Rfam assigns this 85-nucleotide RNA from Neobacillus massiliamazoniensis to the family "ZMP/ZTP riboswitch aptamer (pfl RNA motif)". Its family is annotated with one-carbon metabolic process and regulation of purine nucleotide biosynthetic process in the Gene Ontology. A search with the family's covariance model found it, with a score of 49 bits.
[Rfam]
RNA sequence: UACUAAUGCAGUAACUGACGACAUUUGUGGAAAUGACCACUUGGAAGCUGCAUUUUUAUAUUGUCGGGUCGUCUGGGCAGAGAUA
Numbered sequence: 001u002a003c004u005a006a007u008g009c010a011g012u013a014a015c016u017g018a019c020g021a022c023a024u025u026u027g028u029g030g031a032a033a034u035g036a037c038c039a040c041u042u043g044g045a046a047g048c049u050g051c052a053u054u055u056u057u058a059u060a061u062u063g064u065c066g067g068g069u070c071g072u073c074u075g076g077g078c079a080g081a082g083a084u085a
Base pairs, nucleotide, nucleotide: 005054006053007052008051009050010049011048012047015044016043017073018072019071020070021069027040028039029038030037061080062079063078064077065076